[Rfam]
RNA: mir-9209 microRNA precursor family
Organism: Cnephaeus nilssonii
RNA sequence: AAAACAGUGGUCGGCAAACUGCGGCUCGCGAGCCACAUGCGGCUCGCAAGCCGCGGUUUGCUGCUCUGUUGA
Numbered sequence: 001a002a003a004a005c006a007g008u009g010g011u012c013g014g015c016a017a018a019c020u021g022c023g024g025c026u027c028g029c030g031a032g033c034c035a036c037a038u039g040c041g042g043c044u045c046g047c048a049a050g051c052c053g054c055g056g057u058u059u060g061c062u063g064c065u066c067u068g069u070u071g072a
Stems, first nucleotide, its partner, number of pairs: 003070005009065002012063015028047002031044004
Dot-bracket structure: ..(((((.((.(((((((((((((((.((.((((......)))).)).))))))))))))))))))))))..